[Rfam]
ZMP/ZTP riboswitch aptamer (pfl RNA motif): a 79-nucleotide RNA from Peribacillus loiseleuriae. The base pairs follow the family's consensus structure, which is taken from published work. A search with the family's covariance model found it, with a score of 57 bits.
RNA sequence: AAGACUAUGUGUAACUGGCGAAACACGGAUCACCGUGAGGGAGCACAUAAAGUCGUAGCCGUUCGCCUGGGCAGAGGUA
Number, nucleotide and partner (000 for none) at each position: 001a000002a000003g000004a000005c000006u049007a048008u047009g046010u045011g044012u043013a000014a000015c040016u039017g067018g066019c065020g064021a063022a000023a000024c000025a036026c035027g034028g033029a000030u000031c000032a000033c028034c027035g026036u025037g000038a000039g016040g015041g000042a000043g012044c011045a010046c009047a008048u007049a006050a000051a000052g000053u000054c000055g000056u074057a000058g072059c071060c070061g000062u000063u021064c020065g019066c018067c017068u000069g000070g060071g059072c058073a000074g056075a000076g000077g000078u000079a000